[Rfam]
RNA sequence: AAAGGAGCAAUAAUCAACUUCUUGUUUUAUCAAGAGGAUUGACAUUGCUCCUUUCUUA
Numbered sequence: 001a002a003a004g005g006a007g008c009a010a011u012a013a014u015c016a017a018c019u020u021c022u023u024g025u026u027u028u029a030u031c032a033a034g035a036g037g038a039u040u041g042a043c044a045u046u047g048c049u050c051c052u053u054u055c056u057u058a
Stems, first nucleotide, its partner, number of pairs: 001054011014041001019036006

The record is a 58-nucleotide RNA from Castanea mollissima, which matches "Plastid-psbA-3 3UTR RNA" in Rfam. Its Rfam clan is "Plastid-psbA 3UTR RNA clan". Plastid psbA-3 is a non-coding RNA (ncRNA) present in plastids. It was identified in inverted repeat sequences in the 3 prime untranslate region (3UTR) of photosystem II quinone-binding protein (psbA). It is annotated as a cis-regulatory element.